The record is a 125-nucleotide sequence from Urinicoccus massiliensis, which matches "Ribosomal protein L10 leader" in Rfam. The organism belongs to Urinicoccus, within Bacteria.

[Rfam]
RNA sequence: CUCUUAUAUGUUAUGAAACCGCAGACAGUAGGUAACCAUAAAUCCUACCGAGGUGAGAAUAAAGAUAUCUUUAUGAUUUGAUUUUUUAUCUCAUUGUGUCUGCGAUGAGAUUUUUUUAUUUUAUA
Numbered sequence: 001c002u003c004u005u006a007u008a009u010g011u012u013a014u015g016a017a018a019c020c021g022c023a024g025a026c027a028g029u030a031g032g033u034a035a036c037c038a039u040a041a042a043u044c045c046u047a048c049c050g051a052g053g054u055g056a057g058a059a060u061a062a063a064g065a066u067a068u069c070u071u072u073a074u075g076a077u078u079u080g081a082u083u084u085u086u087u088a089u090c091u092c093a094u095u096g097u098g099u100c101u102g103c104g105a106u107g108a109g110a111u112u113u114u115u116u117u118a119u120u121u122u123a124u125a
Base pairs, nucleotide, nucleotide: 028048029047030046031045032044089110090109091108092107093106094105095104096103097102
Pairs were carried over by alignment from the consensus structure, which was predicted with CMfinder. This family is a putative r-protein leader autoregulatory structure found in B. subtilis and other low-GC Gram-positive bacteria.